[Rfam]
RNA sequence: AAGCAUCGCGCGGGAGAGAUCGCGGGCCUUCGGGGUCGCGGCGCCGAAGGAGCAACCGCCCCGGAAACUCUCAGGCCACCGGACCGCGCGGUGAAG
Numbered sequence: 001a002a003g004c005a006u007c008g009c010g011c012g013g014g015a016g017a018g019a020u021c022g023c024g025g026g027c028c029u030u031c032g033g034g035g036u037c038g039c040g041g042c043g044c045c046g047a048a049g050g051a052g053c054a055a056c057c058g059c060c061c062c063g064g065a066a067a068c069u070c071u072c073a074g075g076c077c078a079c080c081g082g083a084c085c086g087c088g089c090g091g092u093g094a095a096g
Base pairs, nucleotide, nucleotide: 006091007090008089009088010087011086012085013084020041021040022039023038024037025036043076044075045074046072047071050070051069052068056064057063

This 96-nucleotide RNA sequence from Pelagerythrobacter rhizovicinus belongs to the Rfam family "Glycine riboswitch aptamer". NCBI's taxonomy places the organism under Bacteria, Alphaproteobacteria, Sphingomonadales, Erythrobacteraceae, Pelagerythrobacter.